[Rfam]
RNA sequence: AAGUGAUUUCGCUCUUUUAAUAUUUGCCUAGCAGGUGUUUCACCCCGUGGGAAGCCCCU
Numbered sequence: 001a002a003g004u005g006a007u008u009u010c011g012c013u014c015u016u017u018u019a020a021u022a023u024u025u026g027c028c029u030a031g032c033a034g035g036u037g038u039u040u041c042a043c044c045c046c047g048u049g050g051g052a053a054g055c056c057c058c059u
Stems, first nucleotide, its partner, number of pairs: 034056003038052006